Annotation: A member of the RNA family "mir-503 microRNA precursor family" from Hypocryptadius cinnamomeus, 67 nucleotides long. The literature on the family includes a 2005 paper in Nat Genet by Bentwich et al., "Identification of hundreds of conserved and nonconserved human microRNAs". It scores 55 bits against the family's covariance model. Its family is annotated with RISC complex and miRNA-mediated post-transcriptional gene silencing in the Gene Ontology. NCBI's taxonomy places the organism under Eukaryota, Sarcopterygii, Sauropsida, Australaves, Hypocryptadius.
[Rfam]
RNA sequence: UGCUCCUUCAGCAGGAGCUGUACCCAGUGCUUUUGGAGCACUGGGUACAGCUCCUGCUGAAGGAGCA
Numbered sequence: 001u002g003c004u005c006c007u008u009c010a011g012c013a014g015g016a017g018c019u020g021u022a023c024c025c026a027g028u029g030c031u032u033u034u035g036g037a038g039c040a041c042u043g044g045g046u047a048c049a050g051c052u053c054c055u056g057c058u059g060a061a062g063g064a065g066c067a
Stems, first nucleotide, its partner, number of pairs: 002066004008060014023045005029039003